[Rfam]
The family of this 82-nucleotide RNA from Synaphobranchus kaupii is "Mammalian CPEB3 ribozyme".
RNA sequence: UUGGAUCCUGGUAGGGACAUGGUAGGAGCGUUCUCGUCGCGACCCCUGUCAGAUACUCGAAUUAGUGCCUGCCAAUUCUACC
Numbered sequence: 001u002u003g004g005a006u007c008c009u010g011g012u013a014g015g016g017a018c019a020u021g022g023u024a025g026g027a028g029c030g031u032u033c034u035c036g037u038c039g040c041g042a043c044c045c046c047u048g049u050c051a052g053a054u055a056c057u058c059g060a061a062u063u064a065g066u067g068c069c070u071g072c073c074a075a076u077u078c079u080a081c082c
Base pairs, nucleotide, nucleotide: 014045015044016043018041021082022081023080024079025078026077027076028040029039030038050071051070052069054067055066056065
The family's consensus secondary structure is taken from published work.